[Rfam]
RNA sequence: CUCUUAUCCAGAGAGGUGGAGGGACUGGCCCAGUGAAGCCUCGGCAACCAUCAAAGAAACUCUUUGACACGGUGCCAAUUCCAGCAGCGCUCGCGCGCUGAAAGAUGAGAG
Dot-bracket structure: ((((((((....(((((...(((.[[[[)))......)))))((((.((.(((((.......)))))...))))))...(]]]]((((((....))))))..)))))))))
Numbered sequence: 001c002u003c004u005u006a007u008c009c010a011g012a013g014a015g016g017u018g019g020a021g022g023g024a025c026u027g028g029c030c031c032a033g034u035g036a037a038g039c040c041u042c043g044g045c046a047a048c049c050a051u052c053a054a055a056g057a058a059a060c061u062c063u064u065u066g067a068c069a070c071g072g073u074g075c076c077a078a079u080u081c082c083a084g085c086a087g088c089g090c091u092c093g094c095g096c097g098c099u100g101a102a103a104g105a106u107g108a109g110a111g
Stems, first nucleotide, its partner, number of pairs: 001111008013042005021031003025084004043076004048072002051067005080103001085100006